[Rfam]
RNA: c-di-GMP-I-GGC riboswitch aptamer
Organism: Pelotomaculum propionicicum
RNA sequence: UCUGACAAGGGCAAACUCACCGAAAGGUGGGGACGCAAAGCCAACGGACCUAAAAGCGGGUGCUAUGGUGGCCGGGUUACAAGAA
Numbered sequence: 001u002c003u004g005a006c007a008a009g010g011g012c013a014a015a016c017u018c019a020c021c022g023a024a025a026g027g028u029g030g031g032g033a034c035g036c037a038a039a040g041c042c043a044a045c046g047g048a049c050c051u052a053a054a055a056g057c058g059g060g061u062g063c064u065a066u067g068g069u070g071g072c073c074g075g076g077u078u079a080c081a082a083g084a085a
Stems, first nucleotide, its partner, number of pairs: 001085001003082001011036002016031006034071001039078004045074003048069003